Rfam assigns this 308-nucleotide sequence from Salvia splendens to the family "Plant signal recognition particle RNA". Its family is annotated with signal recognition particle, endoplasmic reticulum targeting and SRP-dependent cotranslational protein targeting to membrane, signal sequence recognition in the Gene Ontology. The family's consensus secondary structure is taken from published work.
[Rfam]
RNA sequence: GCCGAGCUUUGUAACAUCAACUUGUAACCCAAGUGGGGGCUUUAAAAUGGUUGGAUUGGAUGUUUCACCUUUACUAUGUGGCUGGCUAUGAAACGCUGAUUCUGACCCGCACGUUCCAAGCUGGGAGUUAGACCAUGAGACCGAUGCGAAGGCAUGAGCUUCUGGGUACAUAGAGCGGAGGGCAUUGCGUCAGGCUGGCUUCACAGAGCAGCGGUUGCCUUCCGUUCUCGGCAGUGGAAGGAUAACGGGCUAGUGUGUUUCAUGCUUGCUAAAGCCAAAUUUAUUGGUCCAAUAAGACAACUAUUUUU
Numbered sequence: 001g002c003c004g005a006g007c008u009u010u011g012u013a014a015c016a017u018c019a020a021c022u023u024g025u026a027a028c029c030c031a032a033g034u035g036g037g038g039g040c041u042u043u044a045a046a047a048u049g050g051u052u053g054g055a056u057u058g059g060a061u062g063u064u065u066c067a068c069c070u071u072u073a074c075u076a077u078g079u080g081g082c083u084g085g086c087u088a089u090g091a092a093a094c095g096c097u098g099a100u101u102c103u104g105a106c107c108c109g110c111a112c113g114u115u116c117c118a119a120g121c122u123g124g125g126a127g128u129u130a131g132a133c134c135a136u137g138a139g140a141c142c143g144a145u146g147c148g149a150a151g152g153c154a155u156g157a158g159c160u161u162c163u164g165g166g167u168a169c170a171u172a173g174a175g176c177g178g179a180g181g182g183c184a185u186u187g188c189g190u191c192a193g194g195c196u197g198g199c200u201u202c203a204c205a206g207a208g209c210a211g212c213g214g215u216u217g218c219c220u221u222c223c224g225u226u227c228u229c230g231g232c233a234g235u236g237g238a239a240g241g242a243u244a245a246c247g248g249g250c251u252a253g254u255g256u257g258u259u260u261c262a263u264g265c266u267u268g269c270u271a272a273a274g275c276c277a278a279a280u281u282u283a284u285u286g287g288u289c290c291a292a293u294a295a296g297a298c299a300a301c302u303a304u305u306u307u308u
Base pairs, nucleotide, nucleotide: 001040002039003038004023005022006021008019028037029036030035044307045306046305047304048303049302050301051300052299053298061295067288068287069286072283076280077279079277080276081275082274083273084267085266087264088263089262090261091260093258094257095256097255098254102253103252104251106249107248108247109246112240114239115238116237117236118235120232121231122230123229124228125227126226127225128224132167133166134165137162138161139160141158144155145154146153147152177222178221179220180219181218188213189212190211195206196205197204